[Rfam]
Nucleotides: 068
Stems, first nucleotide, its partner, number of pairs: 002067006009060004014051002020046007027033002
Number, partner (000 for none) and nucleotide at each position: 001000u002067g003066a004065a005064g006063a007062g008000a009060u010059g011058g012057c013000a014051a015050a016000g017000u018000u019000u020046g021045g022044c023043u024042g025041g026040u027033g028032u029000u030000g031000u032028a033027c034000a035000g036000a037000g038000a039000a040026a041025c042024c043023a044022g045021c046020c047000u048000u049000g050015u051014u052000u053000a054000c055000a056000a057012g058011c059010u060009g061000u062007c063006u064005c065004u066003u067002c068000u
The record is a 68-nucleotide RNA sequence from Oncorhynchus tshawytscha, which matches "MAT2A 3'UTR stem loop F" in Rfam. By type it is a cis-regulatory element. On this family, see Parker et al., Genome Res 2011: "New families of human regulatory RNA structures identified by comparative analysis of vertebrate genomes". The source organism's lineage runs through Eukaryota, Euteleostomi, Salmoniformes, Salmonidae and Oncorhynchus.